Short Intergenic Abundant RNA: a 150-nucleotide RNA sequence from Salmonella enterica.
Its family is annotated with mRNA binding in the Gene Ontology.
Pairs were carried over by alignment from the consensus structure, which was predicted with PFOLD.
Rfam's curators write: This family contains multiple ncRNA from E. coli that were identified in a large scale screen of E. coli, were they were called candidates 43,55 and 61. These RNAs have also been identified by other groups and called QUAD RNAs.
The source organism's lineage runs through Bacteria, Gammaproteobacteria, Enterobacterales, Enterobacteriaceae and Salmonella enterica subsp. enterica.
[Rfam]
RNA sequence: UUGACGCUGCUUUUUUUUCGACCUAAAGUAAAGGAAUAAGGGUGAGAGGGGAUCUCUCCCCCCUCUGAUUGGCUGUUAGUAAGCUGGGAAACUUAUCAGUAACAGAACAAUCAGUAUGAUGACCUGGUGCAUCAUAACCCUUUCCUUAUU
Number, nucleotide and partner (000 for none) at each position: 001u000002u000003g000004a000005c000006g000007c000008u000009g000010c000011u000012u000013u000014u000015u000016u000017u000018u000019c000020g000021a000022c000023c000024u000025a000026a000027a000028g000029u000030a000031a000032a146033g145034g144035a143036a000037u000038a142039a141040g140041g139042g138043u137044g000045a000046g000047a000048g063049g062050g061051g000052a000053u000054c000055u000056c000057u000058c000059c000060c000061c050062c049063c048064u000065c114066u113067g112068a111069u000070u000071g000072g000073c000074u000075g000076u000077u000078a000079g000080u000081a000082a000083g000084c000085u000086g000087g000088g000089a000090a000091a000092c000093u000094u000095a000096u000097c000098a000099g000100u000101a000102a000103c000104a000105g000106a000107a000108c000109a000110a000111u068112c067113a066114g065115u136116a135117u134118g133119a132120u131121g130122a000123c000124c000125u000126g000127g000128u000129g000130c121131a120132u119133c118134a117135u116136a115137a043138c042139c041140c040141u039142u038143u035144c034145c033146u032147u000148a000149u000150u000